[Rfam]
The record is a 79-nucleotide sequence from Myotis lucifugus, which matches "mir-9198 microRNA precursor family" in Rfam. A search with the family's covariance model found it, with a score of 96 bits. Pairs were carried over by alignment from the consensus structure, which was predicted with RNAalifold. The family has 6 seed sequences and 64 matches in Rfam 15.1.
RNA sequence: GCCACCGCUCGCACCUGCUGCCAGCGCCCAGUGCUGGUCCCGAUAGCUCGGCGCUGUCAGCGGGUGCGAGCAGUGGCUG
Numbered sequence: 001g002c003c004a005c006c007g008c009u010c011g012c013a014c015c016u017g018c019u020g021c022c023a024g025c026g027c028c029c030a031g032u033g034c035u036g037g038u039c040c041c042g043a044u045a046g047c048u049c050g051g052c053g054c055u056g057u058c059a060g061c062g063g064g065u066g067c068g069a070g071c072a073g074u075g076g077c078u079g
Stems, first nucleotide, its partner, number of pairs: 004074002007071014022056007